[Rfam]
RNA sequence: GCUGUUCAGUGAUGAGGUGUGGAACAAGCACUGAGCAGUACCUGACACCUGUGGAGAGUGGCUCUGCACUGCAUUUCUUCUGUGAGAGCAGC
Numbered sequence: 001g002c003u004g005u006u007c008a009g010u011g012a013u014g015a016g017g018u019g020u021g022g023a024a025c026a027a028g029c030a031c032u033g034a035g036c037a038g039u040a041c042c043u044g045a046c047a048c049c050u051g052u053g054g055a056g057a058g059u060g061g062c063u064c065u066g067c068a069c070u071g072c073a074u075u076u077c078u079u080c081u082g083u084g085a086g087a088g089c090a091g092c
Base pairs, nucleotide, nucleotide: 001092002091003090004089005088